This 121-nucleotide RNA from Molossus molossus belongs to the Rfam family "Small nucleolar RNA SNORA32". Gene Ontology terms of the family: RNA processing and nucleolus. Rfam classes the family as an H/ACA-box small nucleolar RNA. ACA32 is a member of the H/ACA class of snoRNA that guide the sites of modification of uridines to pseudouridines. Rfam 15.1 lists 615 matches to the family in 234 species. NCBI's taxonomy places the organism under Eukaryota, Eumetazoa, Chordata, Sarcopterygii, Molossus.

RNA sequence: UGUUCAUUACCAAGGCUUUUAGAAAGCAAUUUCCCAUUUGCUGUGGACAUGACCACAAAAUAUUUUCCCGUUAGGUUUUCUUUUUGUUACCUUGGUAGCAUUCAGCCUAUUGGGAACAUUU
Dot-bracket structure: ...((((..(((.............((((........))))..)))..))))..............((((...((((.......(((..........)))...))))...)))).......